[Rfam]
RNA: MIR812 microRNA precursor family
Organism: Oryza nivara
RNA sequence: AAAAAAGAUAAACCUGGGUUUCCGUGUCUAAUUUUAACUGUCCGUUUUAUAUGAAAUUUUUUUAUAAUUCGUAUUUUUAUUGUUGUUAGAUGAUAAAACAUGAUUAAUAUUUUAUGCGUGACUUGUCUUUUUAAUUUUUUUAUAACUUUUUUAAAUAAGACGGACGGUCAAACGUUGGACACGGAAAAUAGGUUUGUCCUUUUU
Numbered sequence: 001a002a003a004a005a006a007g008a009u010a011a012a013c014c015u016g017g018g019u020u021u022c023c024g025u026g027u028c029u030a031a032u033u034u035u036a037a038c039u040g041u042c043c044g045u046u047u048u049a050u051a052u053g054a055a056a057u058u059u060u061u062u063u064a065u066a067a068u069u070c071g072u073a074u075u076u077u078u079a080u081u082g083u084u085g086u087u088a089g090a091u092g093a094u095a096a097a098a099c100a101u102g103a104u105u106a107a108u109a110u111u112u113u114a115u116g117c118g119u120g121a122c123u124u125g126u127c128u129u130u131u132u133a134a135u136u137u138u139u140u141u142a143u144a145a146c147u148u149u150u151u152u153a154a155a156u157a158a159g160a161c162g163g164a165c166g167g168u169c170a171a172a173c174g175u176u177g178g179a180c181a182c183g184g185a186a187a188a189u190a191g192g193u194u195u196g197u198c199c200u201u202u203u204u
Stems, first nucleotide, its partner, number of pairs: 027179006033172003037168014